Small nucleolar RNA SNORD67: a 113-nucleotide sequence from Sander lucioperca.
The organism belongs to Sander, within Eukaryota.
snoRNA HBII-166 belongs to the C/D family of snoRNAs.
Gene Ontology terms of the family: RNA processing and nucleolus.
[Rfam]
RNA sequence: UGUGACAAUGAUGAGUUGCACUAUUAGGCAGGUUGCUGAUUGCAGUGGCACAGCGGCCCUGUCCUGACAACCUGUGGUGACACACACUGUGCACAGGGGCCAUCUGAGUCGCA
Numbered sequence: 001u002g003u004g005a006c007a008a009u010g011a012u013g014a015g016u017u018g019c020a021c022u023a024u025u026a027g028g029c030a031g032g033u034u035g036c037u038g039a040u041u042g043c044a045g046u047g048g049c050a051c052a053g054c055g056g057c058c059c060u061g062u063c064c065u066g067a068c069a070a071c072c073u074g075u076g077g078u079g080a081c082a083c084a085c086a087c088u089g090u091g092c093a094c095a096g097g098g099g100c101c102a103u104c105u106g107a108g109u110c111g112c113a
Stems, first nucleotide, its partner, number of pairs: 004112001007109001025066004029061004033056003041050003